RNA: Plastid-ycf2 5UTR RNA
RNA sequence: GUGCAUGCAACAAGAAUUGAACCUACGAAUUUGCCAAUUAUGAGUUGGGUGUUUUAACCAUUCAGCCAAGGAUGC
Numbered sequence: 001g002u003g004c005a006u007g008c009a010a011c012a013a014g015a016a017u018u019g020a021a022c023c024u025a026c027g028a029a030u031u032u033g034c035c036a037a038u039u040a041u042g043a044g045u046u047g048g049g050u051g052u053u054u055u056a057a058c059c060a061u062u063c064a065g066c067c068a069a070g071g072a073u074g075c
Base pairs, nucleotide, nucleotide: 003075004074005073006072008070012024014022041068042067044066045065046064047063048062049061050060051059